[Rfam]
RNA sequence: UAAAAAGUUUUAUAGGGUUCCACAGUUUCAGAUGGGAGACUGGUUUGGUCCGAGAUAAAACGUACAGCGCAGCUGUAUACACGGAAGGACAAAAGCCUGGGAGAU
Dot-bracket structure: ......((((((..((...(((((((((........))))))..).)).))....))))))(((((((...))))))).(.[...(((.......))).)..]..

This 105-nucleotide RNA sequence from Clostridium aminobutyricum belongs to the Rfam family "Guanidine-I riboswitch aptamer". This family represents a conserved RNA structure found upstream of the ykkC and yxkD genes in Bacillus subtilis and related genes in other bacteria. Lineage of the source: Bacteria > Bacillota > Clostridia > Eubacteriales > Clostridium.